[Rfam]
Shown here is a 61-nucleotide RNA from Sarcophilus harrisii, a member of the family "mir-7398 microRNA precursor family". Its family is annotated with miRNA-mediated post-transcriptional gene silencing and RISC complex in the Gene Ontology. The family's consensus secondary structure was predicted with RNAalifold. The source organism's lineage runs through Eukaryota, Teleostomi, Sarcopterygii, Tetrapoda and Sarcophilus.

RNA sequence: UGUGUAGAGGCAGGGAAAUAUGCCGUGUUGUCCUUUUCGGUAAAUCCUUGCCUUUCACAGA
Numbered sequence: 001u002g003u004g005u006a007g008a009g010g011c012a013g014g015g016a017a018a019u020a021u022g023c024c025g026u027g028u029u030g031u032c033c034u035u036u037u038c039g040g041u042a043a044a045u046c047c048u049u050g051c052c053u054u055u056c057a058c059a060g061a
Stems, first nucleotide, its partner, number of pairs: 002058003006055006013049003017045001022041003